[Rfam]
RNA sequence: CAUACAGUUUCAGGGGCCCUUGGUACAGGCAGGCCGAGAAGCCCCCUCUUUACAUGCACCACCCGCUGCCCGGUCCCGCGUCGAGCCCCGCUCCGCGACCGAACAGCGGCAAACCCUUUCGGGGGCCCAGGUACAGGCAGGCCGGGGAUUCCCCUUUCUUACAACCGCUCGCCGCCGUCGCCCCAGGCACGGCAACGGGCAAAACCCUUUCGGGGACCUUGGUACAGGCAGGCCGGGGAAUCCCCCUUCUUAAAGCCGCUC
Numbered sequence: 001c002a003u004a005c006a007g008u009u010u011c012a013g014g015g016g017c018c019c020u021u022g023g024u025a026c027a028g029g030c031a032g033g034c035c036g037a038g039a040a041g042c043c044c045c046c047u048c049u050u051u052a053c054a055u056g057c058a059c060c061a062c063c064c065g066c067u068g069c070c071c072g073g074u075c076c077c078g079c080g081u082c083g084a085g086c087c088c089c090g091c092u093c094c095g096c097g098a099c100c101g102a103a104c105a106g107c108g109g110c111a112a113a114c115c116c117u118u119u120c121g122g123g124g125g126c127c128c129a130g131g132u133a134c135a136g137g138c139a140g141g142c143c144g145g146g147g148a149u150u151c152c153c154c155u156u157u158c159u160u161a162c163a164a165c166c167g168c169u170c171g172c173c174g175c176c177g178u179c180g181c182c183c184c185a186g187g188c189a190c191g192g193c194a195a196c197g198g199g200c201a202a203a204a205c206c207c208u209u210u211c212g213g214g215g216a217c218c219u220u221g222g223u224a225c226a227g228g229c230a231g232g233c234c235g236g237g238g239a240a241u242c243c244c245c246c247u248u249c250u251u252a253a254a255g256c257c258g259c260u261c
Stems, first nucleotide, its partner, number of pairs: 013046004019038006121154005127146002130143003167200005174193004212245005218237006
This 261-nucleotide RNA from Pseudomonas sp. FeS53a belongs to the Rfam family "Nitrogen regulated small RNA". It scores 108 bits against the family's covariance model. On this family, see Wenner et al., Environ Microbiol 2014: "NrsZ: a novel, processed, nitrogen-dependent, small non-coding RNA that regulates Pseudomonas aeruginosa PAO1 virulence". About the family: Found in the opportunistic pathogen Pseudomonas aeruginosa PAO1. Its transcription is induced during nitrogen limitation by the NtrB/C two-component system (an important regulator of nitrogen assimilation and swarming motility) together with the alternative sigma factor RpoN (a global regulator involved in nitrogen metabolism). By activating rhlA (a gene essential for rhamnolipids synthesis) it positively regulates the production of rhamnolipid surfactants needed for swarming motility.